This 77-nucleotide sequence from Mesocricetus auratus belongs to the Rfam family "Small nucleolar RNA SNORD83". Rfam 15.1 lists 1,393 matches to the family in 644 species. For this family Rfam cites "Characterisation of the U83 and U84 small nucleolar RNAs: two novel 2'-O-ribose methylation guide RNAs that lack complementarities to ribosomal RNAs" (Jady and Kiss, Nucleic Acids Res, 2000). The organism belongs to Mesocricetus, within Eukaryota. Rfam classes the family as a C/D-box small nucleolar RNA.
RNA sequence: GCCACAUGAUGUCCGCAGUUGAGAAGUGAGCGCUCCGCGCAGUGCUGACCUUCAUCUAUCACCCUUGGCUGAUGGCU
Numbered sequence: 001g002c003c004a005c006a007u008g009a010u011g012u013c014c015g016c017a018g019u020u021g022a023g024a025a026g027u028g029a030g031c032g033c034u035c036c037g038c039g040c041a042g043u044g045c046u047g048a049c050c051u052u053c054a055u056c057u058a059u060c061a062c063c064c065u066u067g068g069c070u071g072a073u074g075g076c077u
Base pairs, nucleotide, nucleotide: 001076002075003074004073030040031039032038033037